[Rfam]
RNA sequence: CGAGUUGACUAGACAAUCGCUGCUUUAUCGUUGUGCCUAAUGUUUCGACAAAGGGUAGACAGAUAAAGGGGAGGAAAGUCCGGGCUCCAACGAGCAGGGUGCCAGGUAACGCCUGGGCGGCGCAAGCCGACGACAAGUGCAGCAGAGAGAAGACCGCCGAUGACCGCUUGCGGAACAGGUAAGGCUGAAAGGGUGCGGUAAGAGCGCACCGGGUUACUGGUAACAGUAAUUGCAGGGUAAACUCCACCCGGAGCAAGACCAAAUAGGGUUUCAUUACUUUAAAUAGUAUACGCGUGGCUCGCGCGGAAACCGGGUAGGUUGCUUGAGCCUUAGAGCGAUUUAAGGCCUAGACGAAUGAUUGUCACUUCUUCGGAAGAUACAAAACCCGGCUUAUGUGUUGACUCGCAAG
Numbered sequence: 001c002g003a004g005u006u007g008a009c010u011a012g013a014c015a016a017u018c019g020c021u022g023c024u025u026u027a028u029c030g031u032u033g034u035g036c037c038u039a040a041u042g043u044u045u046c047g048a049c050a051a052a053g054g055g056u057a058g059a060c061a062g063a064u065a066a067a068g069g070g071g072a073g074g075a076a077a078g079u080c081c082g083g084g085c086u087c088c089a090a091c092g093a094g095c096a097g098g099g100u101g102c103c104a105g106g107u108a109a110c111g112c113c114u115g116g117g118c119g120g121c122g123c124a125a126g127c128c129g130a131c132g133a134c135a136a137g138u139g140c141a142g143c144a145g146a147g148a149g150a151a152g153a154c155c156g157c158c159g160a161u162g163a164c165c166g167c168u169u170g171c172g173g174a175a176c177a178g179g180u181a182a183g184g185c186u187g188a189a190a191g192g193g194u195g196c197g198g199u200a201a202g203a204g205c206g207c208a209c210c211g212g213g214u215u216a217c218u219g220g221u222a223a224c225a226g227u228a229a230u231u232g233c234a235g236g237g238u239a240a241a242c243u244c245c246a247c248c249c250g251g252a253g254c255a256a257g258a259c260c261a262a263a264u265a266g267g268g269u270u271u272c273a274u275u276a277c278u279u280u281a282a283a284u285a286g287u288a289u290a291c292g293c294g295u296g297g298c299u300c301g302c303g304c305g306g307a308a309a310c311c312g313g314g315u316a317g318g319u320u321g322c323u324u325g326a327g328c329c330u331u332a333g334a335g336c337g338a339u340u341u342a343a344g345g346c347c348u349a350g351a352c353g354a355a356u357g358a359u360u361g362u363c364a365c366u367u368c369u370u371c372g373g374a375a376g377a378u379a380c381a382a383a384a385c386c387c388g389g390c391u392u393a394u395g396u397g398u399u400g401a402c403u404c405g406c407a408a409g
Stems, first nucleotide, its partner, number of pairs: 001405009011394001012363007020071002023068006076392003080389005085253004092300004097249005102116005117131001118129004132244002137242002139238002154184002156180003161177002164173003192210006211233001212231008257320004267311006291305005327346008

Shown here is a 409-nucleotide sequence from Litorilituus lipolyticus, a member of the family "Bacterial RNase P class A". About the family: Ribonuclease P (RNase P) is a ubiquitous endoribonuclease, found in archaea, bacteria and eukarya as well as chloroplasts and mitochondria. The match comes from Rfam's covariance-model search (317 bits). By type it is a ribozyme. Pairs were carried over by alignment from the consensus structure, which is taken from published work. A reference for the family is Frank and Pace (1998), "Ribonuclease P: unity and diversity in a tRNA processing ribozyme", Annu Rev Biochem. Taxonomically the source falls in Litorilituus (Bacteria, Gammaproteobacteria, Alteromonadales, Colwelliaceae).